This 115-nucleotide RNA from Microbacterium schleiferi belongs to the Rfam family "Glycine riboswitch aptamer".
RNA sequence: CCACUCUGGAAAGCGUCAUCACCCACGCAUCGGGUGGCGUCCGCCGACGGUGAAAGCACAGCAUCCGGUUCACCUGGAUGCCGCGUGAAACUCUCAGGCCACAGACAGAGGGGGA
Numbered sequence: 001c002c003a004c005u006c007u008g009g010a011a012a013g014c015g016u017c018a019u020c021a022c023c024c025a026c027g028c029a030u031c032g033g034g035u036g037g038c039g040u041c042c043g044c045c046g047a048c049g050g051u052g053a054a055a056g057c058a059c060a061g062c063a064u065c066c067g068g069u070u071c072a073c074c075u076g077g078a079u080g081c082c083g084c085g086u087g088a089a090a091c092u093c094u095c096a097g098g099c100c101a102c103a104g105a106c107a108g109a110g111g112g113g114g115a
Stems, first nucleotide, its partner, number of pairs: 001113002004110005015041001017039001043099003046095002050093001052091001056086002
Its family is annotated with glycine biosynthetic process in the Gene Ontology. Rfam's curators write: This family represents the bacterial glycine riboswitch. Its Rfam clan is "Glycine riboswitch clan". The pairing is the family consensus, mapped onto this sequence.